[Rfam]
RNA sequence: CGGGUCGAUGAGACGGUCGCGUUGGUUGUCGCGGCCGCAAGGUUGGGGCAACUGCCGAGGAACGUCCGGGCUCCACAGAGCAGGGCGGUGGGUAACACCCACCCGGAGCAAUCCGCGAGAAAGUGCAACAGAGAGUAGACCGCCUUCGGUCUGCGCCUUCGGGCGUGGUUCGACGGUAAGGGUGAAACGGUGGGGUAAGAGCCCACCAGGGGCCCGAGUGAUCGGGCUCGCUAUGUAAACCUCGUCCGGAGCAAGGUCAGACAGGAAACGCUAAAGGCUGCUCGCCCAGUUUCCGGGUAGACCGCUAGAGGUGUGCGGCAACGUACAUCGUAGAUAGAUGGCCGUCGAUGGUGUCCGCGCGAGAGCGUGAAUCACCGGAACAGAACCCGGCGUACGGUCGGCCCGUUUG
Numbered sequence: 001c002g003g004g005u006c007g008a009u010g011a012g013a014c015g016g017u018c019g020c021g022u023u024g025g026u027u028g029u030c031g032c033g034g035c036c037g038c039a040a041g042g043u044u045g046g047g048g049c050a051a052c053u054g055c056c057g058a059g060g061a062a063c064g065u066c067c068g069g070g071c072u073c074c075a076c077a078g079a080g081c082a083g084g085g086c087g088g089u090g091g092g093u094a095a096c097a098c099c100c101a102c103c104c105g106g107a108g109c110a111a112u113c114c115g116c117g118a119g120a121a122a123g124u125g126c127a128a129c130a131g132a133g134a135g136u137a138g139a140c141c142g143c144c145u146u147c148g149g150u151c152u153g154c155g156c157c158u159u160c161g162g163g164c165g166u167g168g169u170u171c172g173a174c175g176g177u178a179a180g181g182g183u184g185a186a187a188c189g190g191u192g193g194g195g196u197a198a199g200a201g202c203c204c205a206c207c208a209g210g211g212g213c214c215c216g217a218g219u220g221a222u223c224g225g226g227c228u229c230g231c232u233a234u235g236u237a238a239a240c241c242u243c244g245u246c247c248g249g250a251g252c253a254a255g256g257u258c259a260g261a262c263a264g265g266a267a268a269c270g271c272u273a274a275a276g277g278c279u280g281c282u283c284g285c286c287c288a289g290u291u292u293c294c295g296g297g298u299a300g301a302c303c304g305c306u307a308g309a310g311g312u313g314u315g316c317g318g319c320a321a322c323g324u325a326c327a328u329c330g331u332a333g334a335u336a337g338a339u340g341g342c343c344g345u346c347g348a349u350g351g352u353g354u355c356c357g358c359g360c361g362a363g364a365g366c367g368u369g370a371a372u373c374a375c376c377g378g379a380a381c382a383g384a385a386c387c388c389g390g391c392g393u394a395c396g397g398u399c400g401g402c403c404c405g406u407u408u409g
Stems, first nucleotide, its partner, number of pairs: 001405009010395001012346007020057002023054008062393003066390005071251004078283004083247005088102005103117001104115004118242002123240002125236003140181002142177003146173004189207006209231001210229008255303004264294006276286003310329008
RNA: Bacterial RNase P class A